A member of the RNA family "Purine riboswitch aptamer" from Bacillus sp. MUM 13, 102 nucleotides long. Gene Ontology term of the family: purine nucleobase biosynthetic process. The source organism's lineage runs through Bacteria, Bacillati, Bacillota, Caryophanales and Bacillus.

RNA sequence: AUAAAAUUUAAUAGUGUCCUUCGUAUAUCCUCGAUAAUAUGGUUCGAAAGUUUCUACCAAAUCACCGUAAAUGAUUUGACUAUGAAGGCAGGAUCUUUGAUA
Numbered sequence: 001a002u003a004a005a006a007u008u009u010a011a012u013a014g015u016g017u018c019c020u021u022c023g024u025a026u027a028u029c030c031u032c033g034a035u036a037a038u039a040u041g042g043u044u045c046g047a048a049a050g051u052u053u054c055u056a057c058c059a060a061a062u063c064a065c066c067g068u069a070a071a072u073g074a075u076u077u078g079a080c081u082a083u084g085a086a087g088g089c090a091g092g093a094u095c096u097u098u099g100a101u102a
Base pairs, nucleotide, nucleotide: 018088019087020086021085022084023083024082025081031047032046033045034044058078059077060076061075062074063073064072